A member of the RNA family "mir-217 microRNA precursor family" from Sparus aurata, 93 nucleotides long. Gene Ontology terms of the family: miRNA-mediated post-transcriptional gene silencing and RISC complex.

RNA sequence: GACGGACUGAUGUUGAAGAUACUGCAUCAGGAACUGAUUGGAGAGCGACACAAGGCCGUCAGUCCCUGAUGCUCUGCCUUCAGCAUUAAAAGA
Numbered sequence: 001g002a003c004g005g006a007c008u009g010a011u012g013u014u015g016a017a018g019a020u021a022c023u024g025c026a027u028c029a030g031g032a033a034c035u036g037a038u039u040g041g042a043g044a045g046c047g048a049c050a051c052a053a054g055g056c057c058g059u060c061a062g063u064c065c066c067u068g069a070u071g072c073u074c075u076g077c078c079u080u081c082a083g084c085a086u087u088a089a090a091a092g093a
Base pairs, nucleotide, nucleotide: 024072025071026070027069029067030066031065033063034062035061036060037059039058040057041056

For this family Rfam cites "Vertebrate microRNA genes" (Lim et al., Science, 2003). Lineage of the source: Eukaryota > Eumetazoa > Ctenosquamata > Euacanthomorphacea > Sparus.